LOOT RNA: a 118-nucleotide sequence. It is one of the family's seed sequences.
RNA sequence: AGCCUAAACUUGGUCUUCUGGCUAGGCAUGGCAAAAAACUCAACAAAGGUACUGAUCCCCACGAUCAGCGAUUCUUUGUUGAGUCAUACUUCGAAAGGAGUAUGGGGCCGUAAGGCUC
Number, nucleotide and partner (000 for none) at each position: 001a000002g032003c031004c030005u000006a000007a000008a000009c026010u025011u024012g023013g022014u021015c020016u000017u000018c000019u000020g015021g014022c013023u012024a011025g010026g009027c000028a000029u000030g004031g003032c002033a000034a000035a000036a000037a000038a000039c083040u082041c081042a080043a079044c078045a077046a076047a075048g074049g073050u070051a000052c068053u067054g066055a065056u064057c063058c000059c000060c000061a000062c000063g057064a056065u055066c054067a053068g052069c000070g050071a000072u000073u049074c048075u047076u046077u045078g044079u043080u042081g041082a040083g039084u000085c104086a103087u102088a101089c100090u099091u098092c097093g000094a000095a000096a000097g092098g091099a090100g089101u088102a087103u086104g085105g118106g117107g116108c115109c114110g000111u000112a000113a000114g109115g108116c107117u106118c105